[Rfam]
RNA: Group I catalytic intron
Organism: Rutstroemia sp. NJR-2017a WRK4
RNA sequence: UUUUCUUUUUUUUAAAUUGCACGCAUAAAAAUUAAAGGGAAAUAGGGGUAUUAAAAUUUGUCAAAUUGCUUGGAAGACAAAAUAACAAUAAUACUAGUAUUUUGUAAAUAAGCAGCAAAGUAUAACUAAAUUUUAUUUUUAGUUAUCCACGUUCAACGACUAAACGGCAAAGUAAAAUAUAUUAAGUAUUUUAUGUGAUAUAGUCUAAAUAUUAUCGUGAGAUAAUU
Numbered sequence: 001u002u003u004u005c006u007u008u009u010u011u012u013u014a015a016a017u018u019g020c021a022c023g024c025a026u027a028a029a030a031a032u033u034a035a036a037g038g039g040a041a042a043u044a045g046g047g048g049u050a051u052u053a054a055a056a057u058u059u060g061u062c063a064a065a066u067u068g069c070u071u072g073g074a075a076g077a078c079a080a081a082a083u084a085a086c087a088a089u090a091a092u093a094c095u096a097g098u099a100u101u102u103u104g105u106a107a108a109u110a111a112g113c114a115g116c117a118a119a120g121u122a123u124a125a126c127u128a129a130a131u132u133u134u135a136u137u138u139u140u141a142g143u144u145a146u147c148c149a150c151g152u153u154c155a156a157c158g159a160c161u162a163a164a165c166g167g168c169a170a171a172g173u174a175a176a177a178u179a180u181a182u183u184a185a186g187u188a189u190u191u192u193a194u195g196u197g198a199u200a201u202a203g204u205c206u207a208a209a210u211a212u213u214a215u216c217g218u219g220a221g222a223u224a225a226u227u
Stems, first nucleotide, its partner, number of pairs: 005039005057171004062166001067114006077105008115152002120147001128140003156206001158205005174192007212225005